[Rfam]
RNA sequence: AUUUACUGUAGCAUGCCCGUUUGGUGAAUUACUCUGAUGAAUAUUUUAUUAUUUAAGUGCUUUUGGGUAACGGGGUGUUACAUAAA
Numbered sequence: 001a002u003u004u005a006c007u008g009u010a011g012c013a014u015g016c017c018c019g020u021u022u023g024g025u026g027a028a029u030u031a032c033u034c035u036g037a038u039g040a041a042u043a044u045u046u047u048a049u050u051a052u053u054u055a056a057g058u059g060c061u062u063u064u065g066g067g068u069a070a071c072g073g074g075g076u077g078u079u080a081c082a083u084a085a086a
Base pairs, nucleotide, nucleotide: 002086003085004084005083007082008081009080010079011078012077013076014075016074017073018072019071020070021069
Dot-bracket structure: .((((.((((((((.((((((...............................................))))))))))))))))))